[Rfam]
RNA sequence: AUUCUAAUAAGCGUCUUCGCUCAUAUAAUCGCAAGAAUAUGGCUUGCAAGUUUCUACCAAAUGACCGUAAAUCAUUUGACUAUGAGUGAGCAGUGAGAAACA
Numbered sequence: 001a002u003u004c005u006a007a008u009a010a011g012c013g014u015c016u017u018c019g020c021u022c023a024u025a026u027a028a029u030c031g032c033a034a035g036a037a038u039a040u041g042g043c044u045u046g047c048a049a050g051u052u053u054c055u056a057c058c059a060a061a062u063g064a065c066c067g068u069a070a071a072u073c074a075u076u077u078g079a080c081u082a083u084g085a086g087u088g089a090g091c092a093g094u095g096a097g098a099a100a101c102a
Stems, first nucleotide, its partner, number of pairs: 018088008029049001031047005058078007
Purine riboswitch aptamer: a 102-nucleotide sequence from Bacillus thermotolerans. The family's consensus secondary structure is taken from published work. Its Rfam clan is "Purine riboswitches".